[Rfam]
RNA sequence: AUGUGUGUAGGAGUAAGCAGUAAAUUAAGUGGAAACAUGGAAACACUUAAUAUACUGCUUUUAAA
Numbered sequence: 001a002u003g004u005g006u007g008u009a010g011g012a013g014u015a016a017g018c019a020g021u022a023a024a025u026u027a028a029g030u031g032g033a034a035a036c037a038u039g040g041a042a043a044c045a046c047u048u049a050a051u052a053u054a055c056u057g058c059u060u061u062u063a064a065a
Stems, first nucleotide, its partner, number of pairs: 015060007026050001028048001029046003
The family of this 65-nucleotide sequence is "Cyano-1 RNA". Pairs were carried over by alignment from the consensus structure, which is taken from published work. The family has 265 seed sequences and 283 matches in Rfam 15.1.